[Rfam]
The family of this 122-nucleotide RNA from Pectobacterium atrosepticum is "Histidine operon leader". Rfam's curators put it in the seed alignment. The base pairs follow the family's consensus structure, which is taken from published work. From the family's description: At least 6 amino acid operons are known to be regulated by attenuation. In each a leader sequence of 150-200 bp is found upstream of the first gene in the operon. This leader sequence can assume two different secondary structures known as the terminator and the anti-terminator structure. The literature on the family includes a 1982 paper in Annu Rev Genet by Kolter and Yanofsky, "Attenuation in amino acid biosynthetic operons". Gene Ontology term of the family: histidine biosynthetic process. The family's RNA type in Rfam is cis-regulatory leader.
RNA sequence: CCAUCAUCACCAUCAUCCUGAUUAGUCUUUCGGACGGUUGGUGCUGGAAGACGUUCAGAUCUUCCAGUGGCGCAGAACACAAAGAGAGCCCUCGGAAGAUCAUCUUCCGAGGGUUUUUUUAU
Numbered sequence: 001c002c003a004u005c006a007u008c009a010c011c012a013u014c015a016u017c018c019u020g021a022u023u024a025g026u027c028u029u030u031c032g033g034a035c036g037g038u039u040g041g042u043g044c045u046g047g048a049a050g051a052c053g054u055u056c057a058g059a060u061c062u063u064c065c066a067g068u069g070g071c072g073c074a075g076a077a078c079a080c081a082a083a084g085a086g087a088g089c090c091c092u093c094g095g096a097a098g099a100u101c102a103u104c105u106u107c108c109g110a111g112g113g114u115u116u117u118u119u120u121a122u
Base pairs, nucleotide, nucleotide: 008043009042010041011040012039014037018033019032020031021030044067045066046065047064048063049062050061051060083119084118085117086116087115088114089113090112091111092110093109094108095107096106097105098104